Rfam assigns this 334-nucleotide RNA from Dryoscopus gambensis to the family "7SK RNA". The source organism's lineage runs through Eukaryota, Saurischia, Aves, Malaconotidae and Dryoscopus. Rfam 15.1 lists 49,373 matches to the family in 668 species. Rfam classes the family as a non-coding RNA gene.
[Rfam]
RNA sequence: GGAUGUGAGGGCAAUCUGGCUGUGAGAUCUGAUAUGCCACUGAUUGCAUGGUUUGAUUUGACUGGUCUGGCUAGCUUAGGUGGGCAUUCCCUUUCUUCUUCAUCAUUCUGUGUGUGUUCCUCCUGGAGCUGUGUGCUUGGUUAAUGAGGACAACCUCCCCAACAGACAUGGUACUGUUCACUGGUCAAGGGUGUGUGGUAGCUGUGCUCCCCUGCUGGAAGCCCUAAGCUCAAUCAACGUCUAUUUGUAGAAGACUGUAGGGUAGCCAAACAUCCAAUACUAAAGACACAACCAAAUGAGAAGCUCCAUGCAACAUUCUGACAGUGGCUUUUUU
Numbered sequence: 001g002g003a004u005g006u007g008a009g010g011g012c013a014a015u016c017u018g019g020c021u022g023u024g025a026g027a028u029c030u031g032a033u034a035u036g037c038c039a040c041u042g043a044u045u046g047c048a049u050g051g052u053u054u055g056a057u058u059u060g061a062c063u064g065g066u067c068u069g070g071c072u073a074g075c076u077u078a079g080g081u082g083g084g085c086a087u088u089c090c091c092u093u094u095c096u097u098c099u100u101c102a103u104c105a106u107u108c109u110g111u112g113u114g115u116g117u118u119c120c121u122c123c124u125g126g127a128g129c130u131g132u133g134u135g136c137u138u139g140g141u142u143a144a145u146g147a148g149g150a151c152a153a154c155c156u157c158c159c160c161a162a163c164a165g166a167c168a169u170g171g172u173a174c175u176g177u178u179c180a181c182u183g184g185u186c187a188a189g190g191g192u193g194u195g196u197g198g199u200a201g202c203u204g205u206g207c208u209c210c211c212c213u214g215c216u217g218g219a220a221g222c223c224c225u226a227a228g229c230u231c232a233a234u235c236a237a238c239g240u241c242u243a244u245u246u247g248u249a250g251a252a253g254a255c256u257g258u259a260g261g262g263u264a265g266c267c268a269a270a271c272a273u274c275c276a277a278u279a280c281u282a283a284a285g286a287c288a289c290a291a292c293c294a295a296a297u298g299a300g301a302a303g304c305u306c307c308a309u310g311c312a313a314c315a316u317u318c319u320g321a322c323a324g325u326g327g328c329u330u331u332u333u334u
Base pairs, nucleotide, nucleotide: 001109002108003107005103006102007101008100009099010098011097013094014093018091019090024088025087028084029083030082031081033079035074037070038069039068042067043066044065045064046062117171118170121166122165123140124139125138126137128136129135141162142161148158149157150156201271203269207265208264210262211261212260213259214258215257222253225250228248229247232244299334300333301332302331303328304327305326307324